Description: The record is a 125-nucleotide RNA sequence from Oryza barthii, which matches "MIR815 microRNA precursor family" in Rfam.
RNA sequence: CUCCCCAAUCUCCUUAAUCUCCUUCUCCUCAAACACACCCUUAGUAACCAUAUAGCAAGUAUUUCACCUAGCAGUGGUUCCCUUAGGGUGUGUUUGAGGAGAAGGGGAUUGGGGAGAUUGGGAAG
Numbered sequence: 001c002u003c004c005c006c007a008a009u010c011u012c013c014u015u016a017a018u019c020u021c022c023u024u025c026u027c028c029u030c031a032a033a034c035a036c037a038c039c040c041u042u043a044g045u046a047a048c049c050a051u052a053u054a055g056c057a058a059g060u061a062u063u064u065c066a067c068c069u070a071g072c073a074g075u076g077g078u079u080c081c082c083u084u085a086g087g088g089u090g091u092g093u094u095u096g097a098g099g100a101g102a103a104g105g106g107g108a109u110u111g112g113g114g115a116g117a118u119u120g121g122g123a124a125g
Stems, first nucleotide, its partner, number of pairs: 001125002004122009014112002017109002021105008031095005037089005
It scores 64 bits against the family's covariance model.
A reference for the family is Luo et al. (2006), "Rice embryogenic calli express a unique set of microRNAs, suggesting regulatory roles of microRNAs in plant post-embryogenic development", FEBS Lett.